[Rfam]
Rfam assigns this 54-nucleotide RNA sequence from Salmo trutta to the family "UnaL2 LINE 3' element". A search with the family's covariance model found it, with a score of 59 bits. Rfam links the family to the GO term transposition, RNA-mediated. Rfam classes the family as a cis-regulatory element.

RNA sequence: UGCAUUCACUACUGUAAGUCGCUCUUGAUAAGAACGUCUGCUAAAUGACUGAAA
Numbered sequence: 001u002g003c004a005u006u007c008a009c010u011a012c013u014g015u016a017a018g019u020c021g022c023u024c025u026u027g028a029u030a031a032g033a034a035c036g037u038c039u040g041c042u043a044a045a046u047g048a049c050u051g052a053a054a
Base pairs, nucleotide, nucleotide: 013043014041015040016039020036021035023033024032025031